Background:
Rfam assigns this 119-nucleotide RNA from Pipistrellus kuhlii to the family "Small nucleolar RNA SNORA61". Rfam links the family to the GO terms RNA processing and nucleolus. Rfam 15.1 lists 881 matches to the family in 421 species.
RNA sequence: ACCUUCCAGUACCCUUUCCCAUCGGAUCUGAACAUCGAUCUUGGUCAUCAUAGAGGAGGAAAAGUAAUAGUGAAGCUGGCCUCACAUGCUUGUAAUCUGUGGGCUAGUUUCAAACAAGG
Numbered sequence: 001a002c003c004u005u006c007c008a009g010u011a012c013c014c015u016u017u018c019c020c021a022u023c024g025g026a027u028c029u030g031a032a033c034a035u036c037g038a039u040c041u042u043g044g045u046c047a048u049c050a051u052a053g054a055g056g057a058g059g060a061a062a063a064g065u066a067a068u069a070g071u072g073a074a075g076c077u078g079g080c081c082u083c084a085c086a087u088g089c090u091u092g093u094a095a096u097c098u099g100u101g102g103g104c105u106a107g108u109u110u111c112a113a114a115c116a117a118g119g
Base pairs, nucleotide, nucleotide: 003059004058005057006056007055021045022044023043025040026039027038028037076107077106078105079104080103081102082101
Overview:
The match comes from Rfam's covariance-model search (96 bits). From the family's description: ACA61 is a member of the H/ACA class of snoRNA that guide the sites of modification of uridines to pseudouridines. Rfam classes the family as an H/ACA-box small nucleolar RNA.